The family of this 87-nucleotide RNA from Virgisporangium aurantiacum is "ZMP/ZTP riboswitch aptamer (pfl RNA motif)". Taxonomically the source falls in Virgisporangium (Bacteria, Actinomycetes, Micromonosporales, Micromonosporaceae). The base pairs follow the family's consensus structure, which is taken from published work.

[Rfam]
Nucleotides: 087
Stems, first nucleotide, its partner, number of pairs: 005057001007055001011051002015047002017075005030043004064082005
Number, partner (000 for none) and nucleotide at each position: 001000c002000g003000c004000u005057u006000c007055g008000u009000c010000c011051g012050c013000g014000a015047c016046u017075g018074g019073c020072g021071c022000a023000a024000c025000c026000u027000g028000a029000g030043g031042u032041g033040g034000a035000a036000c037000c038000g039000a040033c041032c042031a043030c044000c045000g046016g047015g048000g049000a050012g051011c052000a053000u054000u055007c056000a057005g058000c059000a060000u061000c062000g063000a064082g065081c066080a067079u068078c069000g070000c071021g072020c073019g074018c075017c076000u077000g078068g079067g080066u081065g082064c083000c084000c085000g086000a087000c